[Rfam]
RNA sequence: CCGUGAAAAAACCACACCUCGGGCGACCGGGGGCCGGAAAGCCGCGGGUCUCAAAGGAGAUGGCCGGGUUGCCAGA
Dot-bracket structure: ...........((...((((((....))))))...))..((((.((((((........)))..)))))))......
RNA: c-di-GMP-I riboswitch aptamer
Organism: Desulfobacca acetoxidans